[Rfam]
RNA sequence: GGCAGGCAUGUGCAGGAAUAACCGUAGGUUGUCCGAAAGGACAGCAACGCGUAUAGCGUGGGAUCCUACGGCCUGAGGCCUGCAUUUUU
Numbered sequence: 001g002g003c004a005g006g007c008a009u010g011u012g013c014a015g016g017a018a019u020a021a022c023c024g025u026a027g028g029u030u031g032u033c034c035g036a037a038a039g040g041a042c043a044g045c046a047a048c049g050c051g052u053a054u055a056g057c058g059u060g061g062g063a064u065c066c067u068a069c070g071g072c073c074u075g076a077g078g079c080c081u082g083c084a085u086u087u088u089u
Base pairs, nucleotide, nucleotide: 002083003082004081005080006079007078011076013075014074015073016072022071023070024069025068026067027066028045029044030043031042032041033040034039048058049057050056